This 110-nucleotide sequence from Delitschia confertaspora belongs to the Rfam family "Small nucleolar RNA SNORD14". The family's consensus secondary structure was predicted with PFOLD.
[Rfam]
Nucleotides: 110
Base pairs, nucleotide, nucleotide: 001110002109003108004107046074047073048072049071050070051069
Number, partner (000 for none) and nucleotide at each position: 001110g002109g003108u004107c005000u006000a007000u008000g009000a010000u011000g012000a013000a014000g015000a016000c017000a018000a019000c020000c021000a022000c023000a024000c025000u026000a027000u028000u029000c030000g031000c032000a033000g034000u035000u036000u037000c038000c039000a040000c041000u042000u043000c044000g045000a046074g047073c048072c049071g050070u051069c052000g053000a054000c055000a056000c057000g058000a059000a060000c061000c062000u063000a064000u065000u066000u067000c068000a069051g070050a071049c072048g073047g074046c075000g076000a077000u078000g079000a080000a081000a082000g083000u084000g085000a086000a087000u088000a089000c090000c091000u092000u093000c094000c095000u096000u097000g098000g099000a100000u101000g102000u103000c104000u105000g106000a107004g108003a109002c110001c
From the family's description: U14 small nucleolar RNA (U14 snoRNA) is required for early cleavages of eukaryotic precursor rRNAs.